[Rfam]
Overview: The record is a 153-nucleotide RNA sequence from Solanum tuberosum, which matches "mir-172 microRNA precursor family" in Rfam. For this family Rfam cites "Computational Identification of Plant MicroRNAs and Their Targets, Including a Stress-Induced miRNA" (Jones-Rhoades and Bartel, Mol Cell, 2004). mir-172 has been experimentally verified in Arabidopsis thaliana. NCBI's taxonomy places the organism under Eukaryota, Tracheophyta, Solanales, Solanaceae, Solanum.

RNA sequence: GUGUUUGAGGAUGCAACAUCAUCAAGAUUCACAAAACUUGAAGGGAGAAUUAUUUAAUUAUAUAUUUAGGUUGAAUAUUGGAUAUAUAUAAUAUAGUUCAAAUCUCUUCUCUUCUCUCUUUGGGAAUCUUGAUGAUGCUGCAUCAUCUAACAU
Numbered sequence: 001g002u003g004u005u006u007g008a009g010g011a012u013g014c015a016a017c018a019u020c021a022u023c024a025a026g027a028u029u030c031a032c033a034a035a036a037c038u039u040g041a042a043g044g045g046a047g048a049a050u051u052a053u054u055u056a057a058u059u060a061u062a063u064a065u066u067u068a069g070g071u072u073g074a075a076u077a078u079u080g081g082a083u084a085u086a087u088a089u090a091a092u093a094u095a096g097u098u099c100a101a102a103u104c105u106c107u108u109c110u111c112u113u114c115u116c117u118c119u120u121u122g123g124g125a126a127u128c129u130u131g132a133u134g135a136u137g138c139u140g141c142a143u144c145a146u147c148u149a150a151c152a153u
Stems, first nucleotide, its partner, number of pairs: 010144006017137014032122004